[Rfam]
The record is a 108-nucleotide sequence from Anaerobranca californiensis, which matches "TPP riboswitch aptamer (THI element)" in Rfam. Rfam links the family to the GO term thiamine pyrophosphate binding. It scores 87 bits against the family's covariance model.
RNA sequence: AAAAACCACUAGGGGAGUUAUUACAAUAACUGAGAGGAUGCUGUGGGCAUCUGACCCUUUGAACCUGAUCUGGGUAAUGCCAGCGUAGGGAAGUCGGUUUAGGAUAGG
Numbered sequence: 001a002a003a004a005a006c007c008a009c010u011a012g013g014g015g016a017g018u019u020a021u022u023a024c025a026a027u028a029a030c031u032g033a034g035a036g037g038a039u040g041c042u043g044u045g046g047g048c049a050u051c052u053g054a055c056c057c058u059u060u061g062a063a064c065c066u067g068a069u070c071u072g073g074g075u076a077a078u079g080c081c082a083g084c085g086u087a088g089g090g091a092a093g094u095c096g097g098u099u100u101a102g103g104a105u106a107g108g
Base pairs, nucleotide, nucleotide: 006096008094009093010092011058012057013056014055016052017030018029019028020027021026037051038050039049040048041047064089065088066087067086070083071082072081073080